[Rfam]
RNA sequence: CGGCUGUAGCAAUAGGAAUAAAAAUUGGGAAGAAAAACUGGUCGGACUGGUACAUUUUUCCAUUGCCAAGCCGCUUACCGAUCUUCCCACAUCA
Numbered sequence: 001c002g003g004c005u006g007u008a009g010c011a012a013u014a015g016g017a018a019u020a021a022a023a024a025u026u027g028g029g030a031a032g033a034a035a036a037a038c039u040g041g042u043c044g045g046a047c048u049g050g051u052a053c054a055u056u057u058u059u060c061c062a063u064u065g066c067c068a069a070g071c072c073g074c075u076u077a078c079c080g081a082u083c084u085u086c087c088c089a090c091a092u093c094a
Base pairs, nucleotide, nucleotide: 027088028087029086030085031084032083033082040075041074042073044072045071047070048069049067050066051065052064
A member of the RNA family "Small nucleolar RNA snoR109" from Rhynchospora breviuscula, 94 nucleotides long. Rfam classes the family as an H/ACA-box small nucleolar RNA. NCBI's taxonomy places the organism under Eukaryota, Streptophyta, Magnoliopsida, commelinids, Rhynchospora. The family has 6 seed sequences and 680 matches in Rfam 15.1. The literature on the family includes a 2002 paper in Curr Biol by Marker et al., "Experimental RNomics: identification of 140 candidates for small non-messenger RNAs in the plant Arabidopsis thaliana".